[Rfam]
RNA sequence: GAUAAAGGGAGUGAGAGACUCCCUCGCCGGAAGUCCAAGGGUUCCUGCUUAAAGUUAAUCUGAGCAGGGUUAGCCGGCCCCUAAGGCGAGGCCGAAAGGCGUAGUCGAUGGGAACCACGUUAAUAUUCGUGGGCCUGCGGGAAGUGACGGAUCACGUAUGUUGUAAGGUCUUAUUGGAUUGAUUUUGCAGCGAAGUGGUUCCAGGAAAUAGCUCCCGCGCUAAGACCGUACCCGAAACCGACACUGGUGGACUGGUAGAGAAUACCAAGGCGCU
Numbered sequence: 001g002a003u004a005a006a007g008g009g010a011g012u013g014a015g016a017g018a019c020u021c022c023c024u025c026g027c028c029g030g031a032a033g034u035c036c037a038a039g040g041g042u043u044c045c046u047g048c049u050u051a052a053a054g055u056u057a058a059u060c061u062g063a064g065c066a067g068g069g070u071u072a073g074c075c076g077g078c079c080c081c082u083a084a085g086g087c088g089a090g091g092c093c094g095a096a097a098g099g100c101g102u103a104g105u106c107g108a109u110g111g112g113a114a115c116c117a118c119g120u121u122a123a124u125a126u127u128c129g130u131g132g133g134c135c136u137g138c139g140g141g142a143a144g145u146g147a148c149g150g151a152u153c154a155c156g157u158a159u160g161u162u163g164u165a166a167g168g169u170c171u172u173a174u175u176g177g178a179u180u181g182a183u184u185u186u187g188c189a190g191c192g193a194a195g196u197g198g199u200u201c202c203a204g205g206a207a208a209u210a211g212c213u214c215c216c217g218c219g220c221u222a223a224g225a226c227c228g229u230a231c232c233c234g235a236a237a238c239c240g241a242c243a244c245u246g247g248u249g250g251a252c253u254g255g256u257a258g259a260g261a262a263u264a265c266c267a268a269g270g271c272g273c274u
Base pairs, nucleotide, nucleotide: 006024007023008022009021010020011019025272026271027270028269033252034251035250036249039232040231044068045067046066047065048064049063053061054060075228076227077226080111081110085106086105087104089102091100092099093098115132116131117130118129119128135224137220138219140216141215143213144212145211149201150200151199152198155197156196157195160191161190162189163188164187165186166185167184168183169182170181238247239246254266255265256264257263